[Rfam]
RNA sequence: CGAGAGAACUCUCGUUAAGGAACUCGGCAAAAUGACCCCGUAACUUCGGGAGAAGGGGUGCUAAUCGAAAGAUUAGCCGCAGUGAAUAGGCCCAAACAACUGUUUAUCAAAAACACAGGUAUCUGCAAAAUCGUAAGAUGACGUAUAGGUGCUGACACCUGCCCGGUGCUGGAAGGUUAAGAGGAGAGCUUAGCGUAAGCGAAGGUUUGAAUUGAAGCCCCAGUAAACGGCGGCCGUAACUAUAACGGUCCUAAGGUAGCGAAAUUCCUUGUCGGGUAAGUUCCGACCUGCACGAAAGGUGUAAUGAUUUGGGCACUGUCUCAACGAGAGACUCG
Numbered sequence: 001c002g003a004g005a006g007a008a009c010u011c012u013c014g015u016u017a018a019g020g021a022a023c024u025c026g027g028c029a030a031a032a033u034g035a036c037c038c039c040g041u042a043a044c045u046u047c048g049g050g051a052g053a054a055g056g057g058g059u060g061c062u063a064a065u066c067g068a069a070a071g072a073u074u075a076g077c078c079g080c081a082g083u084g085a086a087u088a089g090g091c092c093c094a095a096a097c098a099a100c101u102g103u104u105u106a107u108c109a110a111a112a113a114c115a116c117a118g119g120u121a122u123c124u125g126c127a128a129a130a131u132c133g134u135a136a137g138a139u140g141a142c143g144u145a146u147a148g149g150u151g152c153u154g155a156c157a158c159c160u161g162c163c164c165g166g167u168g169c170u171g172g173a174a175g176g177u178u179a180a181g182a183g184g185a186g187a188g189c190u191u192a193g194c195g196u197a198a199g200c201g202a203a204g205g206u207u208u209g210a211a212u213u214g215a216a217g218c219c220c221c222a223g224u225a226a227a228c229g230g231c232g233g234c235c236g237u238a239a240c241u242a243u244a245a246c247g248g249u250c251c252u253a254a255g256g257u258a259g260c261g262a263a264a265u266u267c268c269u270u271g272u273c274g275g276g277u278a279a280g281u282u283c284c285g286a287c288c289u290g291c292a293c294g295a296a297a298g299g300u301g302u303a304a305u306g307a308u309u310u311g312g313g314c315a316c317u318g319u320c321u322c323a324a325c326g327a328g329a330g331a332c333u334c335g
Stems, first nucleotide, its partner, number of pairs: 001335004009330008018321003035059005044049001060077007078082001090314007097306002101115003118153008126143001130139003156301004161231003166228002168224005175219003181213002186208005193200002232250006251255001261288001271287006